[Rfam]
RNA sequence: AGAGGCCCUUUGCUGCUGUGGUGGAAAGCUUGCCUCAUCGCUAUGGCGAUGAAGCAAGCAUUCCGCCAGGCAGCUCACACUGCCCAC
Numbered sequence: 001a002g003a004g005g006c007c008c009u010u011u012g013c014u015g016c017u018g019u020g021g022u023g024g025a026a027a028g029c030u031u032g033c034c035u036c037a038u039c040g041c042u043a044u045g046g047c048g049a050u051g052a053a054g055c056a057a058g059c060a061u062u063c064c065g066c067c068a069g070g071c072a073g074c075u076c077a078c079a080c081u082g083c084c085c086a087c
Stems, first nucleotide, its partner, number of pairs: 004084003012074006020067007028059006037050005
RNA: mir-9195 microRNA precursor family